U1 spliceosomal RNA: a 163-nucleotide RNA from Panicum miliaceum. The match comes from Rfam's covariance-model search (116 bits). The organism belongs to Panicum sect. Panicum, within Eukaryota. About the family: U1 is a small nuclear RNA (snRNA) component of the spliceosome (involved in pre-mRNA splicing). Its 5' end forms complementary base pairs with the 5' splice junction, thus defining the 5' donor site of an intron. There are significant differences in sequence and secondary structure between metazoan and yeast U1 snRNAs, the latter being much longer (568 nucleotides as compared to 164 nucleotides in human). Nevertheless, secondary structure predictions suggest that all U1 snRNAs share a 'common core' consisting of helices I, II, the proximal region of III, and IV. This family does not contain the larger yeast sequences.
RNA sequence: AUACUUACCUGGACGGGGUCUAUGGCUGAUCAAGAAGAGCCAUGGCCUAGGUCAGUGCCUCCAUUAUUGCACUUGGGAGGAGCGCUGACUUACCAUCUCCUCAAGCAGGAGAGUGGACGUCAUAAUUUAUAGAAGAGAGGGUACGUGUUCGCACGGCCUCUAC
Numbered sequence: 001a002u003a004c005u006u007a008c009c010u011g012g013a014c015g016g017g018g019u020c021u022a023u024g025g026c027u028g029a030u031c032a033a034g035a036a037g038a039g040c041c042a043u044g045g046c047c048u049a050g051g052u053c054a055g056u057g058c059c060u061c062c063a064u065u066a067u068u069g070c071a072c073u074u075g076g077g078a079g080g081a082g083c084g085c086u087g088a089c090u091u092a093c094c095a096u097c098u099c100c101u102c103a104a105g106c107a108g109g110a111g112a113g114u115g116g117a118c119g120u121c122a123u124a125a126u127u128u129a130u131a132g133a134a135g136a137g138a139g140g141g142u143a144c145g146u147g148u149u150c151g152c153a154c155g156g157c158c159u160c161u162a163c
Base pairs, nucleotide, nucleotide: 012121013120014119015118016048017047018046019045020044023042024041025040026039027038049091050090051089052088056084057083058082061080062079064077065076093116094115095114096112097111098110100108101107138161139160140159141158144155145154146153147152

Background
The family's RNA type in Rfam is spliceosomal small nuclear RNA.